[Rfam]
The family of this 141-nucleotide sequence from Marmota monax is "Small nucleolar RNA SNORA42/SNORA80 family". Rfam classes the family as an H/ACA-box small nucleolar RNA. The source organism's lineage runs through Eukaryota, Amniota, Theria, Sciuridae and Marmota. The members of this family belong to the H/ACA class of snoRNAs that guide the sites of modification of uridines to pseudouridines. Human ACA42 (SNORA42) was cloned from HeLa cells by immunoprecipitation with anti-GAR1 antibody. Its is predicted to guide the pseudouridylation of residues U109 and U572 of 18S rRNA. ACA42 shares the same host gene with ACA26, ACA46, ACA50. On this family, see Schattner et al., RNA 2006: "A computational screen for mammalian pseudouridylation guide H/ACA RNAs". The family's consensus secondary structure was predicted with RNAalifold. Rfam 15.1 lists 1,535 matches to the family in 183 species.
RNA sequence: GCAUAGAAAAAGACUAUGUGAGGAUACAUCAAGAAGGUGGUUAUUGUCUCUCAUAGUGUCCCAUGCCAGAGCAAACUGUAGCCCUGAACCAUUGCCUGGCCUCUGCCUUAGGCUGCUGGCAAUGAAGAGGGUUGCACAGUG
Number, nucleotide and partner (000 for none) at each position: 001g066002c065003a064004u063005a000006g060007a059008a000009a000010a000011a000012g000013a000014c056015u055016a054017u053018g052019u000020g000021a049022g048023g047024a045025u000026a000027c000028a000029u000030c000031a000032a000033g000034a000035a000036g000037g000038u000039g000040g000041u000042u000043a000044u000045u024046g000047u023048c022049u021050c000051u000052c018053a017054u016055a015056g014057u000058g000059u007060c006061c000062c000063a004064u003065g002066c001067c000068a000069g000070a000071g000072c000073a000074a000075a000076c000077u000078g000079u134080a133081g132082c131083c130084c129085u000086g000087a000088a000089c000090c124091a123092u000093u000094g000095c119096c118097u115098g114099g113100c112101c111102u110103c000104u000105g000106c000107c000108u000109u000110a102111g101112g100113c099114u098115g097116c000117u000118g096119g095120c000121a000122a000123u091124g090125a000126a000127g000128a000129g084130g083131g082132u081133u080134g079135c000136a000137c000138a000139g000140u000141g000